[Rfam]
RNA sequence: CUCCCCGAAAUAGCUUUAGGGCUAGCCUUGUACAAAAUACCCGGAGGUAGAGCACUGAAUGGGCUAGGGGCCUUCACCGGUUACCGAACUCAAUCAAACUGCGAAUGCCGGGCUAUUAAAGUACAGGAGUCAGACUGCGGGUGCUAAGAUUCGUAGUCGAGAGGGAAACAGCCCAGACCGCCAGUUAAGGUCCCUAAAUCGUGCUAAGUGGCAAAGGAUGUGAGGUUGCCCGGACAACCAGGAUGUUGGCUUAGAAGCAGCCACCAUUUAAAGAGUGCGUAAUAGCUCACUGGUCAAGUGACCUUGCGCCGAAAAUGUAACGGGGCUCAAGCACGAUACCGAAACUGCGGAAUUCAUUAUGAAUUGGUAGGGGAGCGUUCCCAUUGGAUUGAAGCUAUACCGUAAGGAGUAGUGGACUAAUGGGAAGUGAGAAU
Numbered sequence: 001c002u003c004c005c006c007g008a009a010a011u012a013g014c015u016u017u018a019g020g021g022c023u024a025g026c027c028u029u030g031u032a033c034a035a036a037a038u039a040c041c042c043g044g045a046g047g048u049a050g051a052g053c054a055c056u057g058a059a060u061g062g063g064c065u066a067g068g069g070g071c072c073u074u075c076a077c078c079g080g081u082u083a084c085c086g087a088a089c090u091c092a093a094u095c096a097a098a099c100u101g102c103g104a105a106u107g108c109c110g111g112g113c114u115a116u117u118a119a120a121g122u123a124c125a126g127g128a129g130u131c132a133g134a135c136u137g138c139g140g141g142u143g144c145u146a147a148g149a150u151u152c153g154u155a156g157u158c159g160a161g162a163g164g165g166a167a168a169c170a171g172c173c174c175a176g177a178c179c180g181c182c183a184g185u186u187a188a189g190g191u192c193c194c195u196a197a198a199u200c201g202u203g204c205u206a207a208g209u210g211g212c213a214a215a216g217g218a219u220g221u222g223a224g225g226u227u228g229c230c231c232g233g234a235c236a237a238c239c240a241g242g243a244u245g246u247u248g249g250c251u252u253a254g255a256a257g258c259a260g261c262c263a264c265c266a267u268u269u270a271a272a273g274a275g276u277g278c279g280u281a282a283u284a285g286c287u288c289a290c291u292g293g294u295c296a297a298g299u300g301a302c303c304u305u306g307c308g309c310c311g312a313a314a315a316u317g318u319a320a321c322g323g324g325g326c327u328c329a330a331g332c333a334c335g336a337u338a339c340c341g342a343a344a345c346u347g348c349g350g351a352a353u354u355c356a357u358u359a360u361g362a363a364u365u366g367g368u369a370g371g372g373g374a375g376c377g378u379u380c381c382c383a384u385u386g387g388a389u390u391g392a393a394g395c396u397a398u399a400c401c402g403u404a405a406g407g408a409g410u411a412g413u414g415g416a417c418u419a420a421u422g423g424g425a426a427g428u429g430a431g432a433a434u
Base pairs, nucleotide, nucleotide: 001375002374003373004372005371006370011024012023013022014021015020026129027127028126029125030124031123032122033121036117037116038115039114040112041111042110043109044108050102051100052099056096057095058094060092061091062090063089067085068084069082070081071080072079133158134157135156136155137154138153139152140151141150142149163174164173165172178350179349180348181347183346184345185344189340190339191338198337199336200335201334202333203332204331216310217309220307221306222305223304224303225302226301227300228299229298237294238293239292240291241290243267244266245265248262249261250260268272273288277286278285351365352364353363354362355361356360376429378426379425380424381423382422383421384420385419386418387417394413395412396411397410398409400407401406
Bacterial large subunit ribosomal RNA: a 434-nucleotide part of an RNA from Desulfoscipio gibsoniae. Its family is annotated with structural constituent of ribosome and ribosome in the Gene Ontology. The organism belongs to Desulfoscipio gibsoniae, within Bacteria. The family's consensus secondary structure is taken from published work.